[Rfam]
RNA sequence: CUGACACGCGCGGGAGAGACUUGUCCGAUUCGCCGACCAGGCGUUCGGCAGGCGCCGAAGGAGCAACCGCCCCGGAAUCUCUCAGGCAAAAGGACCGCGCGGCGUCU
Numbered sequence: 001c002u003g004a005c006a007c008g009c010g011c012g013g014g015a016g017a018g019a020c021u022u023g024u025c026c027g028a029u030u031c032g033c034c035g036a037c038c039a040g041g042c043g044u045u046c047g048g049c050a051g052g053c054g055c056c057g058a059a060g061g062a063g064c065a066a067c068c069g070c071c072c073c074g075g076a077a078u079c080u081c082u083c084a085g086g087c088a089a090a091a092g093g094a095c096c097g098c099g100c101g102g103c104g105u106c107u
Base pairs, nucleotide, nucleotide: 007101008100009099010098011097012096013095020052021051022050023049024048025047054087055086056085057083058082061081062080063079067075068074

This 107-nucleotide sequence from Novosphingobium silvae belongs to the Rfam family "Glycine riboswitch aptamer".